[Rfam]
RNA sequence: CCGCAUCAUCAAGAGAAGGGCUGGCGCCCUCGCCAACCUGCCCGGCCGGGCAAGGUGGUCCCCGCAAAGGGAUGUGGCCAUGGGGAAACCCAGGGCAACCAAGCGGUCAGAA
Numbered sequence: 001c002c003g004c005a006u007c008a009u010c011a012a013g014a015g016a017a018g019g020g021c022u023g024g025c026g027c028c029c030u031c032g033c034c035a036a037c038c039u040g041c042c043c044g045g046c047c048g049g050g051c052a053a054g055g056u057g058g059u060c061c062c063c064g065c066a067a068a069g070g071g072a073u074g075u076g077g078c079c080a081u082g083g084g085g086a087a088a089c090c091c092a093g094g095g096c097a098a099c100c101a102a103g104c105g106g107u108c109a110g111a112a
Stems, first nucleotide, its partner, number of pairs: 007074004015031001017030005032059003037055003040051003044108005077096003
Dot-bracket structure: ......((((....(.(((((....))))))(((..((((((.[[[[[))).))).)))...........))))..(((..............))).......]]]]]....
SAM-I/IV (S-adenosyl methionine) riboswitch aptamer: a 112-nucleotide RNA sequence from Pannonibacter phragmitetus.
Rfam links the family to the GO terms regulation of gene expression and S-adenosylmethionine metabolic process.
NCBI's taxonomy places the organism under Bacteria, Pseudomonadati, Alphaproteobacteria, Stappiaceae, Pannonibacter.